[Rfam]
This 136-nucleotide RNA sequence from Leuconostoc lactis belongs to the Rfam family "FMN riboswitch aptamer (RFN element)". Rfam links the family to the GO term FMN binding. The family's consensus secondary structure is taken from published work.
RNA sequence: AAUAUACUUCAGGGUCGGGUGUAAAUCCCAACCGGCGGUGAGACAUGCAAGACAUGGUAAGCCCGCGACCUGCGCAAGCAGCUGAUCUGGUCAAAAUCCAGAGCCGACCGUAAAGUCGGGUAUAAAGAAGUUUAAA
Numbered sequence: 001a002a003u004a005u006a007c008u009u010c011a012g013g014g015u016c017g018g019g020u021g022u023a024a025a026u027c028c029c030a031a032c033c034g035g036c037g038g039u040g041a042g043a044c045a046u047g048c049a050a051g052a053c054a055u056g057g058u059a060a061g062c063c064c065g066c067g068a069c070c071u072g073c074g075c076a077a078g079c080a081g082c083u084g085a086u087c088u089g090g091u092c093a094a095a096a097u098c099c100a101g102a103g104c105c106g107a108c109c110g111u112a113a114a115g116u117c118g119g120g121u122a123u124a125a126a127g128a129a130g131u132u133u134a135a136a
Base pairs, nucleotide, nucleotide: 003134004133006131007130008129009128010127017029018028019027031116032115033106034105035066036065037064038063061104062103070081071080086102087101088100089099090098108119109118110117
The match comes from Rfam's covariance-model search (100 bits).